RNA sequence: ACUAAUUAGAAACACAGGGGCCGGAAAAAUCCGCCCUCCCGAUUGACGAACUGAAGCCAGGACAGACUAUGCGUUGGUGGGUCGUUCCCCCACCGGCGUGAAGGUGCCAAAAAACGCAGGCAAAGAUCUGCUUCAAGGCACCGGCUUCUCAUCAAUCUUCGAGGGUAGCCUGCGCUACCCUCUUUUUUUUAUCUC
Numbered sequence: 001a002c003u004a005a006u007u008a009g010a011a012a013c014a015c016a017g018g019g020g021c022c023g024g025a026a027a028a029a030u031c032c033g034c035c036c037u038c039c040c041g042a043u044u045g046a047c048g049a050a051c052u053g054a055a056g057c058c059a060g061g062a063c064a065g066a067c068u069a070u071g072c073g074u075u076g077g078u079g080g081g082u083c084g085u086u087c088c089c090c091c092a093c094c095g096g097c098g099u100g101a102a103g104g105u106g107c108c109a110a111a112a113a114a115c116g117c118a119g120g121c122a123a124a125g126a127u128c129u130g131c132u133u134c135a136a137g138g139c140a141c142c143g144g145c146u147u148c149u150c151a152u153c154a155a156u157c158u159u160c161g162a163g164g165g166u167a168g169c170c171u172g173c174g175c176u177a178c179c180c181u182c183u184u185u186u187u188u189u190u191a192u193c194u195c
Stems, first nucleotide, its partner, number of pairs: 014194001019036002022033001023031002037164002040161002042156005048150002060108002063100002073097009
RNA: sroC RNA